[Rfam]
RNA sequence: AUCACCGAGCUCAACCUAUUACGUGCUAAUUUUUCGCCUUUUACUAAAGAUUACCGUGGGUUGGGCUCAUACCGGUGACUUACAUAAAUUUUUAGAGGUCGAAAGACCC
Numbered sequence: 001a002u003c004a005c006c007g008a009g010c011u012c013a014a015c016c017u018a019u020u021a022c023g024u025g026c027u028a029a030u031u032u033u034u035c036g037c038c039u040u041u042u043a044c045u046a047a048a049g050a051u052u053a054c055c056g057u058g059g060g061u062u063g064g065g066c067u068c069a070u071a072c073c074g075g076u077g078a079c080u081u082a083c084a085u086a087a088a089u090u091u092u093u094a095g096a097g098g099u100c101g102a103a104a105g106a107c108c109c
Stems, first nucleotide, its partner, number of pairs: 002078004008067011027053008
Annotation:
The family of this 109-nucleotide sequence from Paramecium sonneborni is "U5 spliceosomal RNA". By type it is a spliceosomal small nuclear RNA. The organism belongs to Paramecium, within Eukaryota. The match comes from Rfam's covariance-model search (82 bits). Rfam describes the family as follows. U5 RNA is a component of both types of known spliceosome.